RNA: S10-Clostridia ribosomal protein leader
Organism: Halobacillus andaensis
RNA sequence: AAAAGGCGAUGAUGCGAAAGGUUGUUGACACACCCGGCCCCUUUGCCAUGGCUAGUGAGUCAAGGAAUUUUCGCGGAGAAUGUCUAUUUAAAAAAAUGGGCGA
Numbered sequence: 001a002a003a004a005g006g007c008g009a010u011g012a013u014g015c016g017a018a019a020g021g022u023u024g025u026u027g028a029c030a031c032a033c034c035c036g037g038c039c040c041c042u043u044u045g046c047c048a049u050g051g052c053u054a055g056u057g058a059g060u061c062a063a064g065g066a067a068u069u070u071u072c073g074c075g076g077a078g079a080a081u082g083u084c085u086a087u088u089u090a091a092a093a094a095a096a097u098g099g100g101c102g103a
Base pairs, nucleotide, nucleotide: 014074015073016072018071019070020069021068025063026062027061028060029059083103084102087100088099089098090097
Dot-bracket structure: .............(((.((((...(((((.............................)))))....)))))))........((..((((......)))).))